A member of the RNA family "Clostridiales-1 RNA" from Ruminococcus sp. AF31-8BH, 168 nucleotides long. By type it is a small RNA. The source organism's lineage runs through Bacteria, Bacillati, Clostridia, Eubacteriales and Ruminococcus. A search with the family's covariance model found it, with a score of 123 bits.
[Rfam]
RNA sequence: UGAUACCAGUGUCAAAAGAUCAAAAAGCUGUUCAUGCUUGCACGAUAAGGCUUUUGAGCUUGGGACACGCCAAAUAUGAGAAAGCAGCGAUUUACAUAGUAAAUCAGCGGAUUUCGAAUAUUUGAAGAAUUGUGGGAGCAGCAUAGCUGCGGAACAAUCCGGGUAUCA
Dot-bracket structure: (((((((..((((..(((.(((.((((((.(((.((....)).)).).))))))))).)))..))))...(((((((..((((...(((((((.......))))).))...))))..)))))))..(.(((((....((((.....))))...))))).).)))))))